[Rfam]
RNA: MIR396 microRNA precursor family
Organism: Elaeis guineensis
RNA sequence: CUCUGUAUUCUUCCACAGCUUUCUUGAACUGCAACCAUCAAUAAUACUUCCGUGGUGGGAAUCUUAACUGCAGUUCAAUAAAGCUGUGGGAAAUUACGGAGA
Numbered sequence: 001c002u003c004u005g006u007a008u009u010c011u012u013c014c015a016c017a018g019c020u021u022u023c024u025u026g027a028a029c030u031g032c033a034a035c036c037a038u039c040a041a042u043a044a045u046a047c048u049u050c051c052g053u054g055g056u057g058g059g060a061a062u063c064u065u066a067a068c069u070g071c072a073g074u075u076c077a078a079u080a081a082a083g084c085u086g087u088g089g090g091a092a093a094u095u096a097c098g099g100a101g102a
Stems, first nucleotide, its partner, number of pairs: 003099005013089003017085006024078004029073005